[Rfam]
RNA: Pseudomonas sRNA CrcZ
Organism: Pseudomonas sp. THAF187a
RNA sequence: ACAACAACAAUAACAAGCAAUGCCCUACACAAUAAGAACAAGACGUAACGACUCCAGAACAACAAAAACAAUAAGGUACGGAGGCGCAGCUAACUGAUUCUUUUGGAGAGGAGUUGCCGCAAGGGGUUCGCCCCAGCGACCAGACCGAGAACAACAAAACUGUCUCGAGACAGCGCCAGAACUGGUUGAUCAAGGCAACAUCAGCGUCCAAAGAAAUCCGUUUGCUAUUGGCUCCCCAUUCUAGGGAGCACCCGGUAAGCCACGGCGAACCGGGAAGGGUCGACAACAAAAACAACAGGCCCUCAAUAACAAUAAAAACAGAGCACGCACCAACUUGGGGGGGAGCUUCGGCUCCCCCAGUAGCUUCCGGUUCCCGGAUCCCCGCCUGCCGCCC
Dot-bracket structure: ................................................((.((((........................)))).))..............(((((.........(((...................(((((((................(((((....)))))........)))))))...............)))..))))).................(((((.........))))).....................((((((((((..................))))..................((((.............(((((((((....))))))))..).))))....))))))..................